RNA: ZMP/ZTP riboswitch aptamer (pfl RNA motif)
Organism: Effusibacillus dendaii
RNA sequence: AACAGGUUGCAUGACUGGCGGAACCGUGGGAUACCACAAGGGAGUGCAACUGAAGAUACAGCCGACCGCCUGGGCUCCUUUG
Numbered sequence: 001a002a003c004a005g006g007u008u009g010c011a012u013g014a015c016u017g018g019c020g021g022a023a024c025c026g027u028g029g030g031a032u033a034c035c036a037c038a039a040g041g042g043a044g045u046g047c048a049a050c051u052g053a054a055g056a057u058a059c060a061g062c063c064g065a066c067c068g069c070c071u072g073g074g075c076u077c078c079u080u081u082g
Base pairs, nucleotide, nucleotide: 005051006050007049008048009047010046011045012044015041016040017070018069019068020067021066026037027036028035029034060076061075062074063073